[Rfam]
RNA: MIR8008 microRNA precursor family
Organism: Solanum tuberosum
RNA sequence: AAACCCAAAAAAGUGAUGGACAUUGUCCUUUAGUCCGUCGCUUUUCUGGAUUUUU
Numbered sequence: 001a002a003a004c005c006c007a008a009a010a011a012a013g014u015g016a017u018g019g020a021c022a023u024u025g026u027c028c029u030u031u032a033g034u035c036c037g038u039c040g041c042u043u044u045u046c047u048g049g050a051u052u053u054u055u
Stems, first nucleotide, its partner, number of pairs: 001053003005049003009045013